Background
This 90-nucleotide RNA from Eilatimonas milleporae belongs to the Rfam family "DUF3800-VII RNA". By type it is a small RNA.

RNA sequence: GGCGGGCAAGCGCUGGAGUUACCCCGAGUUGUCUUAGCGACAGCAGCGUCCCAAGCGGCGUGCAUCAGGGGUCCAGGGGCCCGCUUUUUC
Numbered sequence: 001g002g003c004g005g006g007c008a009a010g011c012g013c014u015g016g017a018g019u020u021a022c023c024c025c026g027a028g029u030u031g032u033c034u035u036a037g038c039g040a041c042a043g044c045a046g047c048g049u050c051c052c053a054a055g056c057g058g059c060g061u062g063c064a065u066c067a068g069g070g071g072u073c074c075a076g077g078g079g080c081c082c083g084c085u086u087u088u089u090c
Stems, first nucleotide, its partner, number of pairs: 001085007011077001013076004021072005028044006047060004